[Rfam]
RNA: ASpks TB sRNA
RNA sequence: CUUGAGGGAGCCGAUCCGUACGGGGUCGCCGACGGGGCGGUCGCUGCCGUAGGUGGCCUCCAGCGACUGGGCCUC
Numbered sequence: 001c002u003u004g005a006g007g008g009a010g011c012c013g014a015u016c017c018g019u020a021c022g023g024g025g026u027c028g029c030c031g032a033c034g035g036g037g038c039g040g041u042c043g044c045u046g047c048c049g050u051a052g053g054u055g056g057c058c059u060c061c062a063g064c065g066a067c068u069g070g071g072c073c074u075c
Base pairs, nucleotide, nucleotide: 014026015025016024017023033069038065039064043060047056048055049054